[Rfam]
RNA: sroB RNA
Organism: Erwinia tasmaniensis
RNA sequence: CGGCUAAAUGCAGGAACGAUAACUAAAAUCAUAAUGAUGUCCUUAUUUGACGGGUCGAUAGCAAUAUCGGCCCUUUUUUU
Dot-bracket structure: ......(.((......)).).......((....))................(((((((((....))))))))).......